[Rfam]
RNA sequence: CACAUUCGAAAGUUCAGGUGUGAACGACCUGAUCUUUUGUCUCUGGGUUCUCCUGGCGCGUUCCAAGCCGCGGACGGUCCUCCCUCGUCCGAUGGUUAUGCGCCCGCCUCGCCUCGCUCGUCAUCCGGCGCGCGAGGCUUUUU
Numbered sequence: 001c002a003c004a005u006u007c008g009a010a011a012g013u014u015c016a017g018g019u020g021u022g023a024a025c026g027a028c029c030u031g032a033u034c035u036u037u038u039g040u041c042u043c044u045g046g047g048u049u050c051u052c053c054u055g056g057c058g059c060g061u062u063c064c065a066a067g068c069c070g071c072g073g074a075c076g077g078u079c080c081u082c083c084c085u086c087g088u089c090c091g092a093u094g095g096u097u098a099u100g101c102g103c104c105c106g107c108c109u110c111g112c113c114u115c116g117c118u119c120g121u122c123a124u125c126c127g128g129c130g131c132g133c134g135a136g137g138c139u140u141u142u143u
Stems, first nucleotide, its partner, number of pairs: 055104007071091006111138007119130001121128002
Shown here is a 143-nucleotide sequence from Rhizobium sp. BG4, a member of the family "Rhizobiales sRNA Atu_C7". A reference for the family is Wilms et al. (2012), "Deep sequencing uncovers numerous small RNAs on all four replicons of the plant pathogen Agrobacterium tumefaciens", RNA Biol. Lineage of the source: Bacteria > Pseudomonadati > Pseudomonadota > Hyphomicrobiales > Rhizobium.